[Rfam]
RNA sequence: UUGCAUAAGGGGCAAAUCCGCCGGAAGACGGAGACGCAAAGCUAAAGGGGCCAACAUGCGCAAUAUGUGCAUCAGCCAGCCAGUUGCCAAG
Numbered sequence: 001u002u003g004c005a006u007a008a009g010g011g012g013c014a015a016a017u018c019c020g021c022c023g024g025a026a027g028a029c030g031g032a033g034a035c036g037c038a039a040a041g042c043u044a045a046a047g048g049g050g051c052c053a054a055c056a057u058g059c060g061c062a063a064u065a066u067g068u069g070c071a072u073c074a075g076c077c078a079g080c081c082a083g084u085u086g087c088c089a090a091g
Stems, first nucleotide, its partner, number of pairs: 012037002017032004022027001040085004047081002049077003056072007
RNA: c-di-GMP-I riboswitch aptamer
Organism: Paenibacillus sp. N3.4